RNA sequence: AAAAGGAGCAAUAACGCCCUCUUGAUAAAACAAGAGGGAAGUUAUUUUUCCAA
Numbered sequence: 001a002a003a004a005g006g007a008g009c010a011a012u013a014a015c016g017c018c019c020u021c022u023u024g025a026u027a028a029a030a031c032a033a034g035a036g037g038g039a040a041g042u043u044a045u046u047u048u049u050c051c052a053a
Stems, first nucleotide, its partner, number of pairs: 005051004010046006019036006
Dot-bracket structure: ....((((.((((((...((((((......))))))....)))))).))))..
A member of the RNA family "Plastid-psbA-3 3UTR RNA", 53 nucleotides long. On this family, see Richter et al., Plant Commun 2023: "Retrograde signaling in plants: A critical review focusing on the GUN pathway and beyond". Plastid psbA-3 is a non-coding RNA (ncRNA) present in plastids. It was identified in inverted repeat sequences in the 3 prime untranslate region (3UTR) of photosystem II quinone-binding protein (psbA). Clan: Plastid-psbA 3UTR RNA clan. The family's RNA type in Rfam is cis-regulatory element.